The family of this 193-nucleotide RNA from Synechococcus sp. MIT S9508 is "psaA RNA". It scores 168 bits against the family's covariance model.
RNA sequence: CCUAUGCUUCCCGCAGCGGUCCCCUCUUUGGGGCCCUAGCUCCAGUGAGAGUCAGGGUUCAUUACUCUGAACGCCACUGGCGCCCGGUCACGGUGAAGCUUGCUGAUCCGCGCCCGGGGCCCCGGUAAUCCCAUGGAUUUCCGGAGGGGUGUCCCACCACCUCGAUCCCGUCCCUCGAGGAACGACUCGAUGA
Number, nucleotide and partner (000 for none) at each position: 001c000002c000003u000004a000005u000006g000007c000008u000009u000010c000011c000012c000013g000014c000015a000016g000017c000018g154019g153020u000021c149022c148023c147024c146025u145026c144027u143028u000029u000030g123031g122032g121033g120034c119035c118036c117037u000038a000039g083040c082041u000042c080043c079044a078045g077046u076047g075048a000049g000050a000051g000052u070053c069054a068055g067056g066057g065058u064059u000060c000061a000062u000063u000064a058065c057066u056067c055068u054069g053070a052071a000072c000073g000074c000075c047076a046077c045078u044079g043080g042081c000082g040083c039084c000085c116086g115087g114088u000089c112090a000091c110092g109093g108094u000095g000096a000097a104098g103099c000100u000101u000102g000103c098104u097105g000106a000107u000108c093109c092110g091111c000112g089113c000114c087115c086116g085117g036118g035119g034120c033121c032122c031123c030124g142125g141126u000127a139128a138129u137130c136131c000132c000133a000134u000135g000136g130137a129138u128139u127140u000141c125142c124143g027144g026145a025146g024147g023148g022149g021150u000151g000152u000153c019154c018155c000156a000157c000158c000159a000160c180161c179162u178163c177164g176165a175166u000167c000168c000169c000170g000171u000172c000173c000174c000175u165176c164177g163178a162179g161180g160181a000182a000183c000184g000185a000186c000187u000188c000189g000190a000191u000192g000193a000